[Rfam]
RNA: c-di-GMP-I riboswitch aptamer
Organism: Butyrivibrio sp. CB08
RNA sequence: CAUAAUAAAGGGUAAAACCGGAGUGAUCCGGCGACACAAAGCUAUAGGGACUUGUUUCCAAGUCAGCCAGUUGCAGAA
Numbered sequence: 001c002a003u004a005a006u007a008a009a010g011g012g013u014a015a016a017a018c019c020g021g022a023g024u025g026a027u028c029c030g031g032c033g034a035c036a037c038a039a040a041g042c043u044a045u046a047g048g049g050a051c052u053u054g055u056u057u058c059c060a061a062g063u064c065a066g067c068c069a070g071u072u073g074c075a076g077a078a
Stems, first nucleotide, its partner, number of pairs: 012037002018031005040072004047068002049064006
Dot-bracket structure: ...........((....(((((....)))))....))..((((...((((((((....))))))..))))))......